The family of this 132-nucleotide sequence from Nesterenkonia alkaliphila is "ALIL pseudoknot". On this family, see Mazauric et al., J Biol Chem 2008: "Apical loop-internal loop RNA pseudoknots: a new type of stimulator of -1 translational frameshifting in bacteria". Gene Ontology term of the family: positive regulation of translational frameshifting. The match comes from Rfam's covariance-model search (69 bits). It is annotated as a cis-regulatory element. The family's consensus secondary structure is taken from published work.
[Rfam]
RNA sequence: GGCUUUUUUCGCCGCAGCGGAGCUCGACCGCAAACUGUCACGGUAAUCGCCUACAUCCGCCAAUACCGGCACCGGUUCGGGGUCGAGCCGAUCUGUACUGUGCUCACUGAGCACGGCACCCAGAUCGCCCCG
Numbered sequence: 001g002g003c004u005u006u007u008u009u010c011g012c013c014g015c016a017g018c019g020g021a022g023c024u025c026g027a028c029c030g031c032a033a034a035c036u037g038u039c040a041c042g043g044u045a046a047u048c049g050c051c052u053a054c055a056u057c058c059g060c061c062a063a064u065a066c067c068g069g070c071a072c073c074g075g076u077u078c079g080g081g082g083u084c085g086a087g088c089c090g091a092u093c094u095g096u097a098c099u100g101u102g103c104u105c106a107c108u109g110a111g112c113a114c115g116g117c118a119c120c121c122a123g124a125u126c127g128c129c130c131c132g
Stems, first nucleotide, its partner, number of pairs: 017031004078132005089127002092124004